[Rfam]
RNA sequence: UGGAUCAAUGAUGAGGAAGUAUCAUGAAUGAGGGAUUAUGAAUAAUCUAUUUUUGUGAACCUGAGGUCAAA
Numbered sequence: 001u002g003g004a005u006c007a008a009u010g011a012u013g014a015g016g017a018a019g020u021a022u023c024a025u026g027a028a029u030g031a032g033g034g035a036u037u038a039u040g041a042a043u044a045a046u047c048u049a050u051u052u053u054u055g056u057g058a059a060c061c062u063g064a065g066g067u068c069a070a071a
Stems, first nucleotide, its partner, number of pairs: 003068004
RNA: Small nucleolar RNA SNORD113/SNORD114 family
Organism: Piliocolobus tephrosceles